[Rfam]
A member of the RNA family "Flavo-1 RNA" from Flavobacterium psychrophilum, 78 nucleotides long.
Lineage of the source: Bacteria > Pseudomonadati > Bacteroidota > Flavobacteriaceae > Flavobacterium psychrophilum.
The family's RNA type in Rfam is small RNA.
The family's consensus secondary structure is taken from published work.

RNA sequence: CCCUAGCCCUGAUUGUAGCGAUAUCCUUUUUCUUGCUCCUUUAGCAAGGAAAAGAUAUAGCGAAAAGCAGGAAAUAGC
Numbered sequence: 001c002c003c004u005a006g007c008c009c010u011g012a013u014u015g016u017a018g019c020g021a022u023a024u025c026c027u028u029u030u031u032c033u034u035g036c037u038c039c040u041u042u043a044g045c046a047a048g049g050a051a052a053a054g055a056u057a058u059a060g061c062g063a064a065a066a067g068c069a070g071g072a073a074a075u076a077g078c
Stems, first nucleotide, its partner, number of pairs: 009070003013066002018061002023056003028052005035045003